[Rfam]
RNA sequence: CGAACCGCGGCGGGAGAGAUCCCGCGCGUGUAGCGGGACGCCGAAGGAGAAACCUCCCCGGGAAACUCUCAGGCCCCUGUACCGCCGCGGCGAG
Numbered sequence: 001c002g003a004a005c006c007g008c009g010g011c012g013g014g015a016g017a018g019a020u021c022c023c024g025c026g027c028g029u030g031u032a033g034c035g036g037g038a039c040g041c042c043g044a045a046g047g048a049g050a051a052a053c054c055u056c057c058c059c060g061g062g063a064a065a066c067u068c069u070c071a072g073g074c075c076c077c078u079g080u081a082c083c084g085c086c087g088c089g090g091c092g093a094g
Stems, first nucleotide, its partner, number of pairs: 006089008020038004040074003043070002047068003053061002
RNA: Glycine riboswitch aptamer